[Rfam]
RNA: mir-172 microRNA precursor family
Nucleotides: 156
Base pairs, nucleotide, nucleotide: 010147012145013144015142016141017140018139019138020137021136022135023134024133025132026131027130028129029128030127032125033124034123035122036121
Number, partner (000 for none) and nucleotide at each position: 001000c002000u003000g004000u005000u006000u007000g008000c009000g010147g011000a012145u013144g014000g015142a016141g017140c018139a019138u020137c021136a022135u023134c024133a025132a026131g027130a028129u029128u030127c031000a032125c033124g034123u035122a036121u037000c038000a039000u040000u041000c042000u043000u044000a045000g046000g047000g048000c049000a050000a051000u052000c053000g054000a055000a056000u057000a058000u059000a060000u061000u062000a063000a064000u065000g066000g067000u068000g069000a070000a071000g072000a073000u074000c075000a076000u077000c078000c079000u080000u081000u082000u083000u084000g085000c086000u087000u088000c089000a090000c091000u092000a093000u094000a095000c096000a097000u098000g099000u100000a101000c102000c103000a104000a105000u106000g107000a108000g109000u110000c111000c112000u113000u114000u115000g116000a117000a118000u119000a120000u121036a122035u123034a124033u125032g126000a127030g128029a129028a130027u131026c132025u133024u134023g135022a136021u137020g138019a139018u140017g141016c142015u143000g144013c145012a146000g147010c148000g149000g150000c151000a152000a153000u154000a155000a156000a